[Rfam]
RNA sequence: AAGAGCCUCCAGCUAAUCAAGAUUGAGAAGAUUGACUCAGGAGUAGA
Numbered sequence: 001a002a003g004a005g006c007c008u009c010c011a012g013c014u015a016a017u018c019a020a021g022a023u024u025g026a027g028a029a030g031a032u033u034g035a036c037u038c039a040g041g042a043g044u045a046g047a
Base pairs, nucleotide, nucleotide: 007041008040011037012036014034015033016032017031

The family of this 47-nucleotide RNA from Ricinus communis is "Plastid-rpl16 group II-D1 intron". The match comes from Rfam's covariance-model search (43 bits). The family's consensus secondary structure was predicted with LocARNA. The source organism's lineage runs through Eukaryota, Streptophyta, Euphyllophyta, rosids and Ricinus. For this family Rfam cites "Retrograde signaling in plants: A critical review focusing on the GUN pathway and beyond" (Richter et al., Plant Commun, 2023). Rfam's curators write: Plastid-rpl16 is a non-coding RNA (ncRNA) recognised in plastids.